Rfam assigns this 592-nucleotide part of an RNA from Labeo rohita to the family "Eukaryotic large subunit ribosomal RNA".
RNA sequence: GAAGACCCUGUUGAGCUUGACUCUAGUCUGGCACUGUGAAGAGACAUGAGAGGUGUAGAAUAAGUGGGAGGCCCCGUCUCGAACGGGCGCCGCCAGUGAAAUACCACUACUCUUAUCGUUUCCUCACUCACCCGGUGAGGCGGGGAGGCGGGCCCCCGGCGGGGCUCACGCUUCUGGCGUCCAAGCCCCGGGGCCCUCCGCGGGUCCCGGGCGCGACCCGCCCCGGGGACAGCGCCAGGUGGGGAGUUUGACUGGGGCGGUACACCUAUCAAACGGUAACGUAGGUGUCCUAAGGCGAGCUCAGGGAGGACAGAAACCUCCCGCGGAGCAGAAGGGCAAAAGCUCGCUUGAUCUUGAUUUUCAGUAUGAAUACGGACCGUGAAAGCGGGGCCUCACGAUCCUUCUGGCGUUUUGGGUUUUAAGCAGGAGGUGUCAGAAAAGUUACCACAGGGAUAACUGGCUUGUGGCGGCCAAGCGUUCAUAGCGACGUCGCUUUUUGAUCCUUCGAUGUCGGCUCUUCCUAUCAUUGUGAAGCAGAAUUCACCAAGCGUUGGAUUGUUCACCCACUAAUAGGGAACGUGAGCUGGGUUUA
Numbered sequence: 001g002a003a004g005a006c007c008c009u010g011u012u013g014a015g016c017u018u019g020a021c022u023c024u025a026g027u028c029u030g031g032c033a034c035u036g037u038g039a040a041g042a043g044a045c046a047u048g049a050g051a052g053g054u055g056u057a058g059a060a061u062a063a064g065u066g067g068g069a070g071g072c073c074c075c076g077u078c079u080c081g082a083a084c085g086g087g088c089g090c091c092g093c094c095a096g097u098g099a100a101a102u103a104c105c106a107c108u109a110c111u112c113u114u115a116u117c118g119u120u121u122c123c124u125c126a127c128u129c130a131c132c133c134g135g136u137g138a139g140g141c142g143g144g145g146a147g148g149c150g151g152g153c154c155c156c157c158g159g160c161g162g163g164g165c166u167c168a169c170g171c172u173u174c175u176g177g178c179g180u181c182c183a184a185g186c187c188c189c190g191g192g193g194c195c196c197u198c199c200g201c202g203g204g205u206c207c208c209g210g211g212c213g214c215g216a217c218c219c220g221c222c223c224c225g226g227g228g229a230c231a232g233c234g235c236c237a238g239g240u241g242g243g244g245a246g247u248u249u250g251a252c253u254g255g256g257g258c259g260g261u262a263c264a265c266c267u268a269u270c271a272a273a274c275g276g277u278a279a280c281g282u283a284g285g286u287g288u289c290c291u292a293a294g295g296c297g298a299g300c301u302c303a304g305g306g307a308g309g310a311c312a313g314a315a316a317c318c319u320c321c322c323g324c325g326g327a328g329c330a331g332a333a334g335g336g337c338a339a340a341a342g343c344u345c346g347c348u349u350g351a352u353c354u355u356g357a358u359u360u361u362c363a364g365u366a367u368g369a370a371u372a373c374g375g376a377c378c379g380u381g382a383a384a385g386c387g388g389g390g391c392c393u394c395a396c397g398a399u400c401c402u403u404c405u406g407g408c409g410u411u412u413u414g415g416g417u418u419u420u421a422a423g424c425a426g427g428a429g430g431u432g433u434c435a436g437a438a439a440a441g442u443u444a445c446c447a448c449a450g451g452g453a454u455a456a457c458u459g460g461c462u463u464g465u466g467g468c469g470g471c472c473a474a475g476c477g478u479u480c481a482u483a484g485c486g487a488c489g490u491c492g493c494u495u496u497u498u499g500a501u502c503c504u505u506c507g508a509u510g511u512c513g514g515c516u517c518u519u520c521c522u523a524u525c526a527u528u529g530u531g532a533a534g535c536a537g538a539a540u541u542c543a544c545c546a547a548g549c550g551u552u553g554g555a556u557u558g559u560u561c562a563c564c565c566a567c568u569a570a571u572a573g574g575g576a577a578c579g580u581g582a583g584c585u586g587g588g589u590u591u592a
Stems, first nucleotide, its partner, number of pairs: 007451004012447002014443005020247004027239006036127004041122005046116007063108005070091002131227005141220004148160002151157002177214005250263001251261003264286006289390002295347006301327002304322006328337002352376003357371004378387003401429006410422002460501001462499001464498001466494006475485002512587001513585004517579001518576005525550001529544005552566003556562001
The source organism's lineage runs through Eukaryota, Deuterostomia, Chordata, Neopterygii and Labeo. Pairs were carried over by alignment from the consensus structure, which is taken from published work.